[Rfam]
RNA sequence: GGCCGUUUCGUUCCGUUCGGCGGCUAAUUUUUGGGGGAGGAGGCGCGAAACCGCCCCCAAAAAACCGCUUUCGCGGGACGGCUCCGGCAUGGAUGGCCGGAGCAAGU
Numbered sequence: 001g002g003c004c005g006u007u008u009c010g011u012u013c014c015g016u017u018c019g020g021c022g023g024c025u026a027a028u029u030u031u032u033g034g035g036g037g038a039g040g041a042g043g044c045g046c047g048a049a050a051c052c053g054c055c056c057c058c059a060a061a062a063a064a065c066c067g068c069u070u071u072c073g074c075g076g077g078a079c080g081g082c083u084c085c086g087g088c089a090u091g092g093a094u095g096g097c098c099g100g101a102g103c104a105a106g107u
Stems, first nucleotide, its partner, number of pairs: 009080008020068004030061008039052002081103008
RNA: Termite-flg RNA